[Rfam]
RNA sequence: UGCUUUAAAAGGCAAAACCGCUGAGAAGUGGUGACGCAAAACCUCCGGUCCCCACCGGUUCUUUUCAACCUUUUACUGUAAAGGUACUGGCGGAUAGCGGGGCUGCAAGU
Numbered sequence: 001u002g003c004u005u006u007a008a009a010a011g012g013c014a015a016a017a018c019c020g021c022u023g024a025g026a027a028g029u030g031g032u033g034a035c036g037c038a039a040a041a042c043c044u045c046c047g048g049u050c051c052c053c054a055c056c057g058g059u060u061c062u063u064u065u066c067a068a069c070c071u072u073u074u075a076c077u078g079u080a081a082a083g084g085u086a087c088u089g090g091c092g093g094a095u096a097g098c099g100g101g102g103c104u105g106c107a108a109g110u
Stems, first nucleotide, its partner, number of pairs: 012037002017032006040104001042102002045100003048095003
RNA: c-di-GMP-I riboswitch aptamer